[Rfam]
RNA sequence: GGAUCACCGGUUCAUCACGUCACGUGUCCGGCUGAUAAUGAAACACAAUCCUGUUCAGCGAUAACGUCCUGCAUGCCUGGCGUAUGCCCAUCGUAAACUGUGUGGUCAGAUAGCUGACGGGCUCACGCUUCAUCGCUGGUUUU
Numbered sequence: 001g002g003a004u005c006a007c008c009g010g011u012u013c014a015u016c017a018c019g020u021c022a023c024g025u026g027u028c029c030g031g032c033u034g035a036u037a038a039u040g041a042a043a044c045a046c047a048a049u050c051c052u053g054u055u056c057a058g059c060g061a062u063a064a065c066g067u068c069c070u071g072c073a074u075g076c077c078u079g080g081c082g083u084a085u086g087c088c089c090a091u092c093g094u095a096a097a098c099u100g101u102g103u104g105g106u107c108a109g110a111u112a113g114c115u116g117a118c119g120g121g122c123u124c125a126c127g128c129u130u131c132a133u134c135g136c137u138g139g140u141u142u143u
Stems, first nucleotide, its partner, number of pairs: 025112004030107002050075001052073003058067003080103004116141003120137003
The family of this 143-nucleotide RNA sequence from Erwinia tracheiphila is "isrN Hfq binding RNA". A search with the family's covariance model found it, with a score of 119 bits. For this family Rfam cites "Small RNAs encoded within genetic islands of Salmonella typhimurium show host-induced expression and role in virulence" (Padalon-Brauch et al., Nucleic Acids Res, 2008). NCBI's taxonomy places the organism under Bacteria, Gammaproteobacteria, Enterobacterales, Erwiniaceae, Erwinia.